[Rfam]
RNA sequence: UCGCAUCCACACGGGGGCCCUCGCAAGGGCUGAGAGCGGGCUGACGCGGCCCGAGACCGUUCGAACCUGUCCGGGUCAUGCCGGCGAAGGAAGUAGGACCUCUGAUGGA
Numbered sequence: 001u002c003g004c005a006u007c008c009a010c011a012c013g014g015g016g017g018c019c020c021u022c023g024c025a026a027g028g029g030c031u032g033a034g035a036g037c038g039g040g041c042u043g044a045c046g047c048g049g050c051c052c053g054a055g056a057c058c059g060u061u062c063g064a065a066c067c068u069g070u071c072c073g074g075g076u077c078a079u080g081c082c083g084g085c086g087a088a089g090g091a092a093g094u095a096g097g098a099c100c101u102c103u104g105a106u107g108g109a
Stems, first nucleotide, its partner, number of pairs: 006097002009094002011060004017030005037053007066090003071084004
RNA: TPP riboswitch aptamer (THI element)
Organism: Curtobacterium sp. ISL-83